This 104-nucleotide RNA sequence from Clostridium sp. HMP27 belongs to the Rfam family "Guanidine-I riboswitch aptamer". Rfam links the family to the GO term regulation of gene expression. The organism belongs to Clostridium, within Bacteria. A search with the family's covariance model found it, with a score of 90 bits. This family represents a conserved RNA structure found upstream of the ykkC and yxkD genes in Bacillus subtilis and related genes in other bacteria.

[Rfam]
RNA sequence: UUAAAAGUUUUAUAGGGUUCCGCAACUUUAAAAUAGAGCUGGUCUGGUCCGAGAUAAAACGUACAGUUUAACUGUAUACACGGAAGGAUAAAAGCCUGGGAGGU
Numbered sequence: 001u002u003a004a005a006a007g008u009u010u011u012a013u014a015g016g017g018u019u020c021c022g023c024a025a026c027u028u029u030a031a032a033a034u035a036g037a038g039c040u041g042g043u044c045u046g047g048u049c050c051g052a053g054a055u056a057a058a059a060c061g062u063a064c065a066g067u068u069u070a071a072c073u074g075u076a077u078a079c080a081c082g083g084a085a086g087g088a089u090a091a092a093a094g095c096c097u098g099g100g101a102g103g104u
Stems, first nucleotide, its partner, number of pairs: 007060006015050002020047002022044001023041002026038003061077007079099001081102001085097003